A member of the RNA family "Heliobacter pylori small RNA HPnc0580" from Coffea canephora, 92 nucleotides long. NCBI's taxonomy places the organism under Eukaryota, Viridiplantae, Streptophyta, Ixoroideae, Coffea. A reference for the family is Sharma et al. (2010), "The primary transcriptome of the major human pathogen Helicobacter pylori", Nature. A search with the family's covariance model found it, with a score of 39 bits.
[Rfam]
RNA sequence: ACACGACCUACCGAGGGGCACUCGGAAAGUUACGUCUGUGGAGACGAUGUGAGACCUGGGGGAUAUGAGUUGGUUCGCCACCGUAAAAAUCC
Numbered sequence: 001a002c003a004c005g006a007c008c009u010a011c012c013g014a015g016g017g018g019c020a021c022u023c024g025g026a027a028a029g030u031u032a033c034g035u036c037u038g039u040g041g042a043g044a045c046g047a048u049g050u051g052a053g054a055c056c057u058g059g060g061g062g063a064u065a066u067g068a069g070u071u072g073g074u075u076c077g078c079c080a081c082c083g084u085a086a087a088a089a090u091c092c
Stems, first nucleotide, its partner, number of pairs: 011025005029055003033051003038048002040045001072082003